[Rfam]
RNA: Small nucleolar RNA snoR109
Organism: Phoenix dactylifera
RNA sequence: UGGCUGUAGCUAUAUGAAGUAAGAGAAGAGGGAAGAAAACUGGUCGGCUUGCUCUCCUUAUUGUUGCAAACCCCGCUUACCAAGCUUCCCACAUUA
Dot-bracket structure: .............................((((((......(((.((.((((.............))).).)).))).......))))))......